This 109-nucleotide RNA sequence from Microlunatus endophyticus belongs to the Rfam family "TPP riboswitch aptamer (THI element)". Its family is annotated with thiamine pyrophosphate binding in the Gene Ontology. About the family: Vitamin B(1) in its active form thiamin pyrophosphate (TPP) is an essential coenzyme that is synthesised by coupling of pyrimidine and thiazole moieties in bacteria. The base pairs follow the family's consensus structure, which is taken from published work.
[Rfam]
RNA sequence: UCGCCGAUGCGCGGGAGCCCGGGGACGAAGCCGGGCUGAGAGGGCGAAUCUGCCGACCGUCGAACCUGAUCUGGGUCAUGCCAGCGAAGGGAGCAGCCGGAUGCGGCAU
Numbered sequence: 001u002c003g004c005c006g007a008u009g010c011g012c013g014g015g016a017g018c019c020c021g022g023g024g025a026c027g028a029a030g031c032c033g034g035g036c037u038g039a040g041a042g043g044g045c046g047a048a049u050c051u052g053c054c055g056a057c058c059g060u061c062g063a064a065c066c067u068g069a070u071c072u073g074g075g076u077c078a079u080g081c082c083a084g085c086g087a088a089g090g091g092a093g094c095a096g097c098c099g100g101a102u103g104c105g106g107c108a109u
Stems, first nucleotide, its partner, number of pairs: 006097001008095003011060004017036005043054004065090003071084004